The family of this 387-nucleotide sequence from Palleronia marisminoris is "Bacterial RNase P class A". By type it is a ribozyme. It scores 291 bits against the family's covariance model. Pairs were carried over by alignment from the consensus structure, which is taken from published work.
RNA sequence: GCGGAUGACCGGGUGGCCGCCUCGAACCCAUGGGUUCGGGGAGGAAAGUCCGGACUCCAGGAAGUAACGGUGCCGGGUAACGCCCGGGCGGGGAACGGCGGGGCAACCUGCCGGGAACCCGACGGAAAGCGCCACAGAAAACAGACCGCCCCCGCAGGCCGGGGGUAAGGGUGAAACGGUGGGGUAAGAGCCCACCGGGGGGGCGGCAACGUCCUCCGCAUGGCAAGCCCCACCGGGAGCAAUGCCGAAUAGGGGUCCCAUCGGCCGCUUCCGCCAGGGACCCGGGUUGGCAGCUCGAGCCCGUCGGCAACGGCGGGCCCAGAUGAAUGGCCACCACCCGGCUUGAAUGGCCGGGGACAGAAUCCGGCUUACAGGUCGUCCGCGCAU
Numbered sequence: 001g002c003g004g005a006u007g008a009c010c011g012g013g014u015g016g017c018c019g020c021c022u023c024g025a026a027c028c029c030a031u032g033g034g035u036u037c038g039g040g041g042a043g044g045a046a047a048g049u050c051c052g053g054a055c056u057c058c059a060g061g062a063a064g065u066a067a068c069g070g071u072g073c074c075g076g077g078u079a080a081c082g083c084c085c086g087g088g089c090g091g092g093g094a095a096c097g098g099c100g101g102g103g104c105a106a107c108c109u110g111c112c113g114g115g116a117a118c119c120c121g122a123c124g125g126a127a128a129g130c131g132c133c134a135c136a137g138a139a140a141a142c143a144g145a146c147c148g149c150c151c152c153c154g155c156a157g158g159c160c161g162g163g164g165g166u167a168a169g170g171g172u173g174a175a176a177c178g179g180u181g182g183g184g185u186a187a188g189a190g191c192c193c194a195c196c197g198g199g200g201g202g203g204c205g206g207c208a209a210c211g212u213c214c215u216c217c218g219c220a221u222g223g224c225a226a227g228c229c230c231c232a233c234c235g236g237g238a239g240c241a242a243u244g245c246c247g248a249a250u251a252g253g254g255g256u257c258c259c260a261u262c263g264g265c266c267g268c269u270u271c272c273g274c275c276a277g278g279g280a281c282c283c284g285g286g287u288u289g290g291c292a293g294c295u296c297g298a299g300c301c302c303g304u305c306g307g308c309a310a311c312g313g314c315g316g317g318c319c320c321a322g323a324u325g326a327a328u329g330g331c332c333a334c335c336a337c338c339c340g341g342c343u344u345g346a347a348u349g350g351c352c353g354g355g356g357a358c359a360g361a362a363u364c365c366g367g368c369u370u371a372c373a374g375g376u377c378g379u380c381c382g383c384g385c386a387u
Stems, first nucleotide, its partner, number of pairs: 001383010011372001012335007020041009046370003050367005055239004064270001068235005073087005088123001089121004124230002129228002131224003146170002148166007178196006197219001198217008243292004253283006263275003299318008